A member of the RNA family "THF (Tetrahydrofolate) riboswitch aptamer" from Clostridium oryzae, 103 nucleotides long.
RNA sequence: GGCAGAGUAGAAGGUUAUACGUAAAGUGUCAGCUAGACGGGAAGUUGCUAGCUGAACGAAAAGUCUUAAAUGACUUGCGAUUUAAUCUUCGCAUUCCGCUGCC
Numbered sequence: 001g002g003c004a005g006a007g008u009a010g011a012a013g014g015u016u017a018u019a020c021g022u023a024a025a026g027u028g029u030c031a032g033c034u035a036g037a038c039g040g041g042a043a044g045u046u047g048c049u050a051g052c053u054g055a056a057c058g059a060a061a062a063g064u065c066u067u068a069a070a071u072g073a074c075u076u077g078c079g080a081u082u083u084a085a086u087c088u089u090c091g092c093a094u095u096c097c098g099c100u101g102c103c
Stems, first nucleotide, its partner, number of pairs: 001103005010090008019081001020079003026057002029055008040096003044092001061076004
Pairs were carried over by alignment from the consensus structure, which is taken from published work. For this family Rfam cites "A eubacterial riboswitch class that senses the coenzyme tetrahydrofolate" (Ames et al., Chem Biol, 2010). A search with the family's covariance model found it, with a score of 92 bits. About the family: Tetrahydrofolate (THF) riboswitch was first reported for Ames et al. as an RNA motif in 5' untranslated (5'-UTR)regions of folate transport and biosynthesis genes in Firmicutes genomes.